The family of this 342-nucleotide sequence from Verrucomicrobia bacterium S94 is "Bacterial RNase P class A". Its family is annotated with tRNA processing, dimeric ribonuclease P complex and ribonuclease P activity in the Gene Ontology. The source organism's lineage runs through Bacteria, Pseudomonadati and Verrucomicrobiota.
[Rfam]
RNA sequence: CAGGCAGGGUGUAUCGGUCGCUCCGCAUAUGCGGGGAGGAAAGUCCGGACUCCACAGGGCAGGACGUCCCGGGGUUAACGCGGGAAUCCAUGUGCCAGAUCGCAUGGGAUGGAAAGUGCCGCAGAAAAUAUACCGCCCCGUUCGCGGGGUAAGGGUGAAAUGGUGGGGUAAGAGCCCACCGCGCGGAAGGUAACGACCGUGGCAGGGUAAACCCCGUCCGGAGCAAGAUCAAAUAGGGGACUUAGGAGCGGCCCGCUCUGUUUAAGGUUCCGGGUAGAUCGCAUAGAUAAAUGAUCGACACCUUCGGGUGAACAGAAUCCGGCUUACCGCCCUGCCUGUUUU
Numbered sequence: 001c002a003g004g005c006a007g008g009g010u011g012u013a014u015c016g017g018u019c020g021c022u023c024c025g026c027a028u029a030u031g032c033g034g035g036g037a038g039g040a041a042a043g044u045c046c047g048g049a050c051u052c053c054a055c056a057g058g059g060c061a062g063g064a065c066g067u068c069c070c071g072g073g074g075u076u077a078a079c080g081c082g083g084g085a086a087u088c089c090a091u092g093u094g095c096c097a098g099a100u101c102g103c104a105u106g107g108g109a110u111g112g113a114a115a116g117u118g119c120c121g122c123a124g125a126a127a128a129u130a131u132a133c134c135g136c137c138c139c140g141u142u143c144g145c146g147g148g149g150u151a152a153g154g155g156u157g158a159a160a161u162g163g164u165g166g167g168g169u170a171a172g173a174g175c176c177c178a179c180c181g182c183g184c185g186g187a188a189g190g191u192a193a194c195g196a197c198c199g200u201g202g203c204a205g206g207g208u209a210a211a212c213c214c215c216g217u218c219c220g221g222a223g224c225a226a227g228a229u230c231a232a233a234u235a236g237g238g239g240a241c242u243u244a245g246g247a248g249c250g251g252c253c254c255g256c257u258c259u260g261u262u263u264a265a266g267g268u269u270c271c272g273g274g275u276a277g278a279u280c281g282c283a284u285a286g287a288u289a290a291a292u293g294a295u296c297g298a299c300a301c302c303u304u305c306g307g308g309u310g311a312a313c314a315g316a317a318u319c320c321g322g323c324u325u326a327c328c329g330c331c332c333u334g335c336c337u338g339u340u341u342u
Stems, first nucleotide, its partner, number of pairs: 001338010011327001014298006021036006041325003045322005050223004057254004062219005067085005086110001087108008111214002116212002118208003133154002135150006162180006181203001182201005189194001227280004237271006245259005